[Rfam]
RNA sequence: AACACGCUCCUUAGAUCCACCUCUGGGGGGCACUCCUGUGCUGGUGCUGUUGUCUCUGAGCGCUGCAGCUCCAGCUUGGAGGCCCUCAACAGCUUUUUGGCUGUACAGUUGGAGGUGCAUGAGUCAUUGGCGUGUGAGAGCAGUCUACCUGCCUCCCAGCACCUCUGAUGCCCUGGCAACCCUCAGUUCCACUGACGGGACCCUACCAGUGCAGCUAUGCUGGGGGAUGGACAAU
Numbered sequence: 001a002a003c004a005c006g007c008u009c010c011u012u013a014g015a016u017c018c019a020c021c022u023c024u025g026g027g028g029g030g031c032a033c034u035c036c037u038g039u040g041c042u043g044g045u046g047c048u049g050u051u052g053u054c055u056c057u058g059a060g061c062g063c064u065g066c067a068g069c070u071c072c073a074g075c076u077u078g079g080a081g082g083c084c085c086u087c088a089a090c091a092g093c094u095u096u097u098u099g100g101c102u103g104u105a106c107a108g109u110u111g112g113a114g115g116u117g118c119a120u121g122a123g124u125c126a127u128u129g130g131c132g133u134g135u136g137a138g139a140g141c142a143g144u145c146u147a148c149c150u151g152c153c154u155c156c157c158a159g160c161a162c163c164u165c166u167g168a169u170g171c172c173c174u175g176g177c178a179a180c181c182c183u184c185a186g187u188u189c190c191a192c193u194g195a196c197g198g199g200a201c202c203c204u205a206c207c208a209g210u211g212c213a214g215c216u217a218u219g220c221u222g223g224g225g226g227a228u229g230g231a232c233a234a235u
Stems, first nucleotide, its partner, number of pairs: 002135007010123004018117006024088006034080003040075005046069004052063001054062001089104006149230003153226001156223001158221004169213003173209004183195003
This 235-nucleotide RNA sequence from Hucho hucho belongs to the Rfam family "Small nucleolar RNA SNORA53". Rfam classes the family as an H/ACA-box small nucleolar RNA. Gene Ontology terms of the family: nucleolus and RNA processing. Rfam's curators write: The snoRNA ACA53 belongs to the H/ACA family of pseudouridylation guide snoRNAs. The match comes from Rfam's covariance-model search (105 bits).